[Rfam]
RNA: Small nucleolar RNA Z107/R87
RNA sequence: GGUGGCUGUGACGACUAGGUGAAAUUCAAGCUCAACAGACCAAAUCACAGGUCUCUCUCCAAGGCCUUUGGAGAUGGGAUCUGUAUGCCGAGUUUCCGCUCAGCCGAGCCAUC
Numbered sequence: 001g002g003u004g005g006c007u008g009u010g011a012c013g014a015c016u017a018g019g020u021g022a023a024a025u026u027c028a029a030g031c032u033c034a035a036c037a038g039a040c041c042a043a044a045u046c047a048c049a050g051g052u053c054u055c056u057c058u059c060c061a062a063g064g065c066c067u068u069u070g071g072a073g074a075u076g077g078g079a080u081c082u083g084u085a086u087g088c089c090g091a092g093u094u095u096c097c098g099c100u101c102a103g104c105c106g107a108g109c110c111a112u113c
Stems, first nucleotide, its partner, number of pairs: 001113006